Shown here is a 333-nucleotide sequence from Anaerotignum neopropionicum, a member of the family "Bacterial RNase P class A".
RNA sequence: UGAGUAAGCUGGAUGGUCGCGCCCCAUAAAGGUGAGGAAAGUCCGGGCUUCGUAGAGCAGGGUGCCGGUUAACGACCGGUGGAGGCAACUCUAAGGAUAGUGCAACAGAAAUAAACCGCCUGUUUUUGCAGGUAAGGAUGGAAAGGUGGGGUAAGAGCCCACCGCUUCUCUGGUAACAGGGAAGGCUCUGUAAACCCCACCCGAAGCAAGACGAAAUGAAACAAUAGGGCUGCUCGUCCUGUUUCAAUAAAUGUCGCAUGAUGCUGUUGGCAACAACAGACCAAGAUAGAUGGCUGUCCAAGACAGAACCCGGCUUAUAGGCUUGCUCAUACA
Dot-bracket structure: ((((((((((((((((((.((((.......))))....[[[.[[[[[((((...[[[[.((((((((((.....)))))(((((....)))).)((...(((((...........((((((((....))))))..)).......((((((.......))))))(((((((((....)))))))).)..)))..)))))))))))))...((((...((((((...(((((.]]]]))))))))))).....))))........((((((....))))))............)))))))..........]]]]]]]].).))))))))))....